The family of this 479-nucleotide part of an RNA from Corynebacterium riegelii is "Bacterial large subunit ribosomal RNA".
The organism belongs to Corynebacterium, within Bacteria.

RNA sequence: GAAUGAUACGUGAGAAUCGUAUCCGCCGAAUGACGAAGGGUUCCUGGGUCAAGUUCGUCUUCCCAGGGUGAGUCGGGUCCUAAGGCGAGGCCGACAGGCGUAGUCGAUGGUCAACGGGUUGAUAUUCCCGUACCCGCCUACACGCGACCAAUGCUGAAGCAAUGAUACUAACCACCCAAAGCUACUGAUAUACGCACCCUUGUGGUGUGUGGUUGGUGGUGAUGCGUGGGGCCUGAUUUGUUGUAGGUAAGUGAUGGGGUGACGCAGAGUGGUAGCCACGCCAGUUAUUGGAUUCUGGUGCAAGCGUGCAGCACGACAACAUGGCAAAUCCGGUUGUUAUAUGUGCAAGGCGUGAUGCGUAGCCCAUAUAUGGGUGAUGGUGGUGAUCCUGUGCUGCCGAGAAAAGCCUCUAGCGAUGUGUGUAGACGGCCCGUACCCGAAACCGACACAGGUAGUCAGGUAGAGCAUACUAAGGCGAG
Numbered sequence: 001g002a003a004u005g006a007u008a009c010g011u012g013a014g015a016a017u018c019g020u021a022u023c024c025g026c027c028g029a030a031u032g033a034c035g036a037a038g039g040g041u042u043c044c045u046g047g048g049u050c051a052a053g054u055u056c057g058u059c060u061u062c063c064c065a066g067g068g069u070g071a072g073u074c075g076g077g078u079c080c081u082a083a084g085g086c087g088a089g090g091c092c093g094a095c096a097g098g099c100g101u102a103g104u105c106g107a108u109g110g111u112c113a114a115c116g117g118g119u120u121g122a123u124a125u126u127c128c129c130g131u132a133c134c135c136g137c138c139u140a141c142a143c144g145c146g147a148c149c150a151a152u153g154c155u156g157a158a159g160c161a162a163u164g165a166u167a168c169u170a171a172c173c174a175c176c177c178a179a180a181g182c183u184a185c186u187g188a189u190a191u192a193c194g195c196a197c198c199c200u201u202g203u204g205g206u207g208u209g210u211g212g213u214u215g216g217u218g219g220u221g222a223u224g225c226g227u228g229g230g231g232c233c234u235g236a237u238u239u240g241u242u243g244u245a246g247g248u249a250a251g252u253g254a255u256g257g258g259g260u261g262a263c264g265c266a267g268a269g270u271g272g273u274a275g276c277c278a279c280g281c282c283a284g285u286u287a288u289u290g291g292a293u294u295c296u297g298g299u300g301c302a303a304g305c306g307u308g309c310a311g312c313a314c315g316a317c318a319a320c321a322u323g324g325c326a327a328a329u330c331c332g333g334u335u336g337u338u339a340u341a342u343g344u345g346c347a348a349g350g351c352g353u354g355a356u357g358c359g360u361a362g363c364c365c366a367u368a369u370a371u372g373g374g375u376g377a378u379g380g381u382g383g384u385g386a387u388c389c390u391g392u393g394c395u396g397c398c399g400a401g402a403a404a405a406g407c408c409u410c411u412a413g414c415g416a417u418g419u420g421u422g423u424a425g426a427c428g429g430c431c432c433g434u435a436c437c438c439g440a441a442a443c444c445g446a447c448a449c450a451g452g453u454a455g456u457c458a459g460g461u462a463g464a465g466c467a468u469a470c471u472a473a474g475g476c477g478a479g
Stems, first nucleotide, its partner, number of pairs: 005023006024477004032457003038437002043067006052060002074433004079110002084105003088101001090099003114131005134429003138425007251414002256410005264397004271389002275384005280299005300358002304353004311346003315338006323331002360377001362375005443452002459471004